The family of this 94-nucleotide sequence from Octodon degus is "mir-802 microRNA precursor family". NCBI's taxonomy places the organism under Eukaryota, Opisthokonta, Tetrapoda, Eutheria, Octodon. The literature on the family includes a 2006 paper in Nucleic Acids Res by Takada et al., "Mouse microRNA profiles determined with a new and sensitive cloning method". The base pairs follow the family's consensus structure, which was predicted with RNAalifold. It scores 102 bits against the family's covariance model.

RNA sequence: UUUCUAUUAUUUUCAGUCAGUAACAGAGAUUCAUUCUUGUGUCAAUCAUACAACAAGGAGAAUCUUUGUCACUUAGUGUAAUUAAUAGCUUUGC
Numbered sequence: 001u002u003u004c005u006a007u008u009a010u011u012u013u014c015a016g017u018c019a020g021u022a023a024c025a026g027a028g029a030u031u032c033a034u035u036c037u038u039g040u041g042u043c044a045a046u047c048a049u050a051c052a053a054c055a056a057g058g059a060g061a062a063u064c065u066u067u068g069u070c071a072c073u074u075a076g077u078g079u080a081a082u083u084a085a086u087a088g089c090u091u092u093g094c
Base pairs, nucleotide, nucleotide: 004088005087006086007085008084009083011081012080014078015077017075019073020072021071023069024068025067026066027065028064029063030062031061032060034059035058036057037056038055039054040053041051042050